The record is a 144-nucleotide RNA sequence from Drosophila pseudoobscura, which matches "Small nucleolar RNA psi28S-2876" in Rfam. From the family's description: psi28S-2876 is a member of the H/ACA class of snoRNA. This family is responsible for guiding the modification of uridines 2876 and 2956 to pseudouridine in Drosophila 28S rRNA. Gene Ontology terms of the family: RNA processing and nucleolus.

[Rfam]
RNA sequence: CAUGCAGCCAGCAGCAAUGGCUUGUGGUUCGAUUGGCGACUGCUUGCUUAUAAUGUUUGGCCAGAACAUUCUUCUAUCUUAUCCGUAGCGUCACAAUGUGUAAUAUAAUCCGACAUUUGGCGUAUGACCUGAAGAGACAUCUUA
Numbered sequence: 001c002a003u004g005c006a007g008c009c010a011g012c013a014g015c016a017a018u019g020g021c022u023u024g025u026g027g028u029u030c031g032a033u034u035g036g037c038g039a040c041u042g043c044u045u046g047c048u049u050a051u052a053a054u055g056u057u058u059g060g061c062c063a064g065a066a067c068a069u070u071c072u073u074c075u076a077u078c079u080u081a082u083c084c085g086u087a088g089c090g091u092c093a094c095a096a097u098g099u100g101u102a103a104u105a106u107a108a109u110c111c112g113a114c115a116u117u118u119g120g121c122g123u124a125u126g127a128c129c130u131g132a133a134g135a136g137a138c139a140u141c142u143u144a
Stems, first nucleotide, its partner, number of pairs: 007061004011056002024043005090138003097131002103125004110120004